[Rfam]
RNA sequence: CAUAAAUUAUCUUUAAAUCACACACGUACCGACACAUGAUCCGGGGUGCUCACUUACUCAAUAUUGAGAGGUAGAGUCGGACGCAUGGGGCACGUGGAGGCCUAAC
Numbered sequence: 001c002a003u004a005a006a007u008u009a010u011c012u013u014u015a016a017a018u019c020a021c022a023c024a025c026g027u028a029c030c031g032a033c034a035c036a037u038g039a040u041c042c043g044g045g046g047u048g049c050u051c052a053c054u055u056a057c058u059c060a061a062u063a064u065u066g067a068g069a070g071g072u073a074g075a076g077u078c079g080g081a082c083g084c085a086u087g088g089g090g091c092a093c094g095u096g097g098a099g100g101c102c103u104a105a106c
Base pairs, nucleotide, nucleotide: 023096024095025094026093027092029090030089035087036086037085038084040081041080042079043078048077049076050075051074